The record is a 188-nucleotide sequence from a Solirubrobacteraceae bacterium, which matches "c-di-AMP riboswitch aptamer (ydaO/yuaA leader)" in Rfam. Its family is annotated with cyclic-di-AMP binding and regulation of gene expression in the Gene Ontology. NCBI's taxonomy places the organism under Bacteria, Bacillati, Thermoleophilia, Solirubrobacterales, Solirubrobacteraceae.

RNA sequence: CAAACCGAACUGCCGAGUUCGGCGCCGUCCUGCGGCGCUGGAGCGGGGGACCCACUUGCCGGCAGCACCAAGCCGGCCGGGGCGAAUCGCGUGGCGUGCCACGCGUAGCGGUUGAGGAAGCAGCGCCCUGUGCUGCUGAUCGAUCGCGAGCCCGUCAGCUCACCUCGUAGGCAGACCCCCAUGAGGUU
Numbered sequence: 001c002a003a004a005c006c007g008a009a010c011u012g013c014c015g016a017g018u019u020c021g022g023c024g025c026c027g028u029c030c031u032g033c034g035g036c037g038c039u040g041g042a043g044c045g046g047g048g049g050a051c052c053c054a055c056u057u058g059c060c061g062g063c064a065g066c067a068c069c070a071a072g073c074c075g076g077c078c079g080g081g082g083c084g085a086a087u088c089g090c091g092u093g094g095c096g097u098g099c100c101a102c103g104c105g106u107a108g109c110g111g112u113u114g115a116g117g118a119a120g121c122a123g124c125g126c127c128c129u130g131u132g133c134u135g136c137u138g139a140u141c142g143a144u145c146g147c148g149a150g151c152c153c154g155u156c157a158g159c160u161c162a163c164c165u166c167g168u169a170g171g172c173a174g175a176c177c178c179c180c181a182u183g184a185g186g187u188u
Stems, first nucleotide, its partner, number of pairs: 011173004018042011043168006053079001080153003088105004108147008